[Rfam]
RNA sequence: UAGCUACAAAAUAACUUAUUUUGUAGCCACUUUGAGUUACGAUAAUUACUAUGUUAAUUUAUGAAAUUAUAGUAACUCCAUACUAAGUGAUUUACUACGUUAUGGUAAAUAUCUCCAUGUGUUAUAGUAACCCAACUAUUGUAAAUGUGUAUUAAUAUUAUCAUAAAUUAGUAUAUAAAACUAUCGUAAAUGGAGGUGGCUACAAAAUAUUUGUAGCUG
Numbered sequence: 001u002a003g004c005u006a007c008a009a010a011a012u013a014a015c016u017u018a019u020u021u022u023g024u025a026g027c028c029a030c031u032u033u034g035a036g037u038u039a040c041g042a043u044a045a046u047u048a049c050u051a052u053g054u055u056a057a058u059u060u061a062u063g064a065a066a067u068u069a070u071a072g073u074a075a076c077u078c079c080a081u082a083c084u085a086a087g088u089g090a091u092u093u094a095c096u097a098c099g100u101u102a103u104g105g106u107a108a109a110u111a112u113c114u115c116c117a118u119g120u121g122u123u124a125u126a127g128u129a130a131c132c133c134a135a136c137u138a139u140u141g142u143a144a145a146u147g148u149g150u151a152u153u154a155a156u157a158u159u160a161u162c163a164u165a166a167a168u169u170a171g172u173a174u175a176u177a178a179a180a181c182u183a184u185c186g187u188a189a190a191u192g193g194a195g196g197u198g199g200c201u202a203c204a205a206a207a208u209a210u211u212u213g214u215a216g217c218u219g
Stems, first nucleotide, its partner, number of pairs: 001219010017209017037189008046180002050175013066161002069158003074152001081143003087139003091135002093129005098121003104114002
Rfam assigns this 219-nucleotide RNA sequence from Sorghum bicolor to the family "MIR6217 microRNA precursor family". Taxonomically the source falls in Sorghum (Eukaryota, Mesangiospermae, Poaceae, Sorghinae). Pairs were carried over by alignment from the consensus structure, which was predicted with RNAalifold. Its family is annotated with RISC complex and miRNA-mediated post-transcriptional gene silencing in the Gene Ontology.